[Rfam]
RNA sequence: ACACCGAUGCUUUAAGCAUUGGGAUCAUAAUAAUGAUGAAAUUCCUCUUUGACGGGCCAAUAGAAAUAUUGGCCAUUUUUUU
Numbered sequence: 001a002c003a004c005c006g007a008u009g010c011u012u013u014a015a016g017c018a019u020u021g022g023g024a025u026c027a028u029a030a031u032a033a034u035g036a037u038g039a040a041a042u043u044c045c046u047c048u049u050u051g052a053c054g055g056g057c058c059a060a061u062a063g064a065a066a067u068a069u070u071g072g073c074c075a076u077u078u079u080u081u082u
Stems, first nucleotide, its partner, number of pairs: 007019005027034002055074008
RNA: sroB RNA